RNA sequence: GGGGGUGAUCGGUUUCGACGGCAGUCGUCGAUCCAGGAGAAGCGGGCCGAGGAUGCAGAGUCAUCUCGUUAACGCUCUUUGCAAACCAAUAGGUGCCGAUAACAACCGCACCGACUUCGCACUCGCCGCCUGAGCGAGUCCUGAAGUCCGUCAGCCCGGGCUAGCUCUCGACCCGGUUCCUGGCGUCAGCUAGAGAGCCACUGCUCAUCGUCCUCGUUACCGGGACGGUGGGGACUUCUAGGUAACUGAGCCCGUCAGCACCUUGUCUGCGUGAGUGCUGGGGCCGAGAAAAGCAGAGCAGUCUGCGCCCGGAGAAGCCCUGGAUUUUCACUGUCGGACGCGGGUUCGAUUCCCGCCACCUCCACUG
Numbered sequence: 001g002g003g004g005g006u007g008a009u010c011g012g013u014u015u016c017g018a019c020g021g022c023a024g025u026c027g028u029c030g031a032u033c034c035a036g037g038a039g040a041a042g043c044g045g046g047c048c049g050a051g052g053a054u055g056c057a058g059a060g061u062c063a064u065c066u067c068g069u070u071a072a073c074g075c076u077c078u079u080u081g082c083a084a085a086c087c088a089a090u091a092g093g094u095g096c097c098g099a100u101a102a103c104a105a106c107c108g109c110a111c112c113g114a115c116u117u118c119g120c121a122c123u124c125g126c127c128g129c130c131u132g133a134g135c136g137a138g139u140c141c142u143g144a145a146g147u148c149c150g151u152c153a154g155c156c157c158g159g160g161c162u163a164g165c166u167c168u169c170g171a172c173c174c175g176g177u178u179c180c181u182g183g184c185g186u187c188a189g190c191u192a193g194a195g196a197g198c199c200a201c202u203g204c205u206c207a208u209c210g211u212c213c214u215c216g217u218u219a220c221c222g223g224g225a226c227g228g229u230g231g232g233g234a235c236u237u238c239u240a241g242g243u244a245a246c247u248g249a250g251c252c253c254g255u256c257a258g259c260a261c262c263u264u265g266u267c268u269g270c271g272u273g274a275g276u277g278c279u280g281g282g283g284c285c286g287a288g289a290a291a292a293g294c295a296g297a298g299c300a301g302u303c304u305g306c307g308c309c310c311g312g313a314g315a316a317g318c319c320c321u322g323g324a325u326u327u328u329c330a331c332u333g334u335c336g337g338a339c340g341c342g343g344g345u346u347c348g349a350u351u352c353c354c355g356c357c358a359c360c361u362c363c364a365c366u367g
Stems, first nucleotide, its partner, number of pairs: 001363007019336007027328001030326008043311005048068005054083007119141001121139006149185006156176005164198006204232009216246005250284004256280003260276002265303001267301002272297001340356005

Description:
The family of this 367-nucleotide RNA sequence from Pseudactinotalea sp. HY158 is "transfer-messenger RNA". A search with the family's covariance model found it, with a score of 164 bits. The base pairs follow the family's consensus structure, which is taken from published work. Bacterial tmRNA, also known as 10Sa RNA or SsrA, is named for its dual tRNA and mRNA-like properties.